[Rfam]
RNA sequence: GGGGGUGAAUGGUCUCGACUUCGGUCGGGUGACCAGGGGAAGCGAGCCGAGGAAGGCAACGAUGAGCUCGUUAACCAUCCGUUGCAAACCAACAAGUGCCGCGAAUAAGCAGCACGACUUCGCUCUCGCUGCCUGAUAGCAGCUAGGCGAGUCUGUCAGCCCGGGUUCGUCAUCGGCCCGGAUCCUGGCAUCAGCUAGAUGACUCACUGCGCGCGCCGGUCGCGGGCGCGCGCGGGACAUCCAACAGCGACUGGGCCCGUCACAUCGACUCGUCUGCAUGAUCGAUGGGGCCGAGCAGAGGCAACGCAGACUGCGCUCGGAGAAGCCCUGGUGAUUCAUCGAAGGACGCGGGUUCGAUUCCCGCCACCUCCACCA
Numbered sequence: 001g002g003g004g005g006u007g008a009a010u011g012g013u014c015u016c017g018a019c020u021u022c023g024g025u026c027g028g029g030u031g032a033c034c035a036g037g038g039g040a041a042g043c044g045a046g047c048c049g050a051g052g053a054a055g056g057c058a059a060c061g062a063u064g065a066g067c068u069c070g071u072u073a074a075c076c077a078u079c080c081g082u083u084g085c086a087a088a089c090c091a092a093c094a095a096g097u098g099c100c101g102c103g104a105a106u107a108a109g110c111a112g113c114a115c116g117a118c119u120u121c122g123c124u125c126u127c128g129c130u131g132c133c134u135g136a137u138a139g140c141a142g143c144u145a146g147g148c149g150a151g152u153c154u155g156u157c158a159g160c161c162c163g164g165g166u167u168c169g170u171c172a173u174c175g176g177c178c179c180g181g182a183u184c185c186u187g188g189c190a191u192c193a194g195c196u197a198g199a200u201g202a203c204u205c206a207c208u209g210c211g212c213g214c215g216c217c218g219g220u221c222g223c224g225g226g227c228g229c230g231c232g233c234g235g236g237a238c239a240u241c242c243a244a245c246a247g248c249g250a251c252u253g254g255g256c257c258c259g260u261c262a263c264a265u266c267g268a269c270u271c272g273u274c275u276g277c278a279u280g281a282u283c284g285a286u287g288g289g290g291c292c293g294a295g296c297a298g299a300g301g302c303a304a305c306g307c308a309g310a311c312u313g314c315g316c317u318c319g320g321a322g323a324a325g326c327c328c329u330g331g332u333g334a335u336u337c338a339u340c341g342a343a344g345g346a347c348g349c350g351g352g353u354u355c356g357a358u359u360c361c362c363g364c365c366a367c368c369u370c371c372a373c374c375a
Base pairs, nucleotide, nucleotide: 001371002370003369004368005367006366007365019344020343021342022341023340024339025338027336028335032332033331034330035329036328037327038326043319044318045317046316047315048070049069050068051067056085057084058083059082060081061080124147125146126145128143129142130141131140132139154190155189156188157187158186159185161181162180163179164178165177166176167175169203170202171201172200173199174198207235208234209233210232211231212230213229214228215227218252219251220250221249222248223247254292255291256290257289258288261287262286267283268282272311273310274309275308279304348364349363350362351361352360
RNA: transfer-messenger RNA